[Rfam]
RNA sequence: UGCCAUGAUGUCAUAAUUUGCUCCUUACUCUGCUCUCGGCGACAGUUGCCUGCUGUCAGUGAGCUGGUGCAAAAGGGUGACUAAUGUUCUCACUGAGCA
Numbered sequence: 001u002g003c004c005a006u007g008a009u010g011u012c013a014u015a016a017u018u019u020g021c022u023c024c025u026u027a028c029u030c031u032g033c034u035c036u037c038g039g040c041g042a043c044a045g046u047u048g049c050c051u052g053c054u055g056u057c058a059g060u061g062a063g064c065u066g067g068u069g070c071a072a073a074a075g076g077g078u079g080a081c082u083a084a085u086g087u088u089c090u091c092a093c094u095g096a097g098c099a
Stems, first nucleotide, its partner, number of pairs: 001099003021079001031071003039064002041057005
The record is a 99-nucleotide RNA from Erinaceus europaeus, which matches "Small nucleolar RNA SNORD16" in Rfam. Its family is annotated with RNA processing and nucleolus in the Gene Ontology. The source organism's lineage runs through Eukaryota, Opisthokonta, Sarcopterygii, Erinaceidae and Erinaceus. The family's RNA type in Rfam is C/D-box small nucleolar RNA. A search with the family's covariance model found it, with a score of 79 bits. The base pairs follow the family's consensus structure, which was predicted with PFOLD.